[Rfam]
RNA sequence: AAAAGUAGCGAAUAGAACAGGCGGCUAUCACUCCUGACUAAUAUCAGAUCUUAUAAGAGAGGUGGGAUUGCCACCCCGCCUACUUUC
Numbered sequence: 001a002a003a004a005g006u007a008g009c010g011a012a013u014a015g016a017a018c019a020g021g022c023g024g025c026u027a028u029c030a031c032u033c034c035u036g037a038c039u040a041a042u043a044u045c046a047g048a049u050c051u052u053a054u055a056a057g058a059g060a061g062g063u064g065g066g067a068u069u070g071c072c073a074c075c076c077c078g079c080c081u082a083c084u085u086u087c
Stems, first nucleotide, its partner, number of pairs: 002086007012028004020072004031057001034047004062079005
RNA: skipping-rope RNA